[Rfam]
RNA sequence: AAGCUGGAUGUGAGAAUUGGAGGGGACUAAACAAAUUAAAAUCGCAAUGGAAAAUUCCUAAUUUGUUUAGUUUUCUCCAAUAUCUCAUCUCCGACGU
Numbered sequence: 001a002a003g004c005u006g007g008a009u010g011u012g013a014g015a016a017u018u019g020g021a022g023g024g025g026a027c028u029a030a031a032c033a034a035a036u037u038a039a040a041a042u043c044g045c046a047a048u049g050g051a052a053a054a055u056u057c058c059u060a061a062u063u064u065g066u067u068u069a070g071u072u073u074u075c076u077c078c079a080a081u082a083u084c085u086c087a088u089c090u091c092c093g094a095c096g097u
Base pairs, nucleotide, nucleotide: 005093006092007091008090011087012086013085014084016081017080018079019078020077021076023074024073025072026071027070028069029068030067032065033064
Dot-bracket structure: ....((((..((((.((((((.((((((((.((..............................)).)))))))).))))))..))))..))))....
About this RNA: The family of this 97-nucleotide sequence from Malus domestica is "MIR2275 microRNA precursor family". The organism belongs to Malus, within Eukaryota. Gene Ontology terms of the family: RISC complex and miRNA-mediated post-transcriptional gene silencing. The family's consensus secondary structure was predicted with RNAalifold. The match comes from Rfam's covariance-model search (70 bits).